Record summary: SAM riboswitch aptamer (S box leader): a 141-nucleotide RNA sequence from Nakamurella endophytica. The organism belongs to Nakamurella, within Bacteria. The base pairs follow the family's consensus structure, which is taken from published work.
RNA sequence: ACCUCAUCCAGAGGGGCAGAGGGACACGGCCCGACGAAGCCCCGGCAACCACCACGACGCGCAGUCCGCACCCGCGGACACGACAGGCCCGUCGUCGGCAGGUGCCCCGUCCGUCCCGCCACCGAGCGGGGAAGAUGAGAC
Numbered sequence: 001a002c003c004u005c006a007u008c009c010a011g012a013g014g015g016g017c018a019g020a021g022g023g024a025c026a027c028g029g030c031c032c033g034a035c036g037a038a039g040c041c042c043c044g045g046c047a048a049c050c051a052c053c054a055c056g057a058c059g060c061g062c063a064g065u066c067c068g069c070a071c072c073c074g075c076g077g078a079c080a081c082g083a084c085a086g087g088c089c090c091g092u093c094g095u096c097g098g099c100a101g102g103u104g105c106c107c108c109g110u111c112c113g114u115c116c117c118g119c120c121a122c123c124g125a126g127c128g129g130g131g132a133a134g135a136u137g138a139g140a141c
Stems, first nucleotide, its partner, number of pairs: 003139006013043005021032003026114004044106004049102002052098002110133001115130005